This 96-nucleotide RNA sequence from Rubellimicrobium sp. CFH 75288 belongs to the Rfam family "Rhodo-rpoB RNA". It is annotated as a cis-regulatory element. A search with the family's covariance model found it, with a score of 40 bits.
Nucleotides: 096
Stems, first nucleotide, its partner, number of pairs: 001043005011030007067096001069094003072090005
Number, partner (000 for none) and nucleotide at each position: 001043g002042g003041g004040u005039c006000g007000g008000u009000g010000c011030g012029g013028g014027g015026c016025c017024g018000g019000u020000g021000g022000g023000a024017c025016g026015g027014c028013u029012c030011c031000u032000g033000c034000g035000g036000a037000u038000g039005g040004a041003c042002c043001c044000c045000c046000g047000a048000u049000a050000u051000a052000u053000c054000c055000c056000c057000c058000c059000u060000g061000a062000c063000g064000g065000g066000a067096c068000a069094g070093g071092g072090c073089g074088c075087c076086g077000c078000g079000c080000c081000c082000c083000c084000g085000g086076c087075g088074g089073c090072g091000c092071c093070c094069c095000g096067g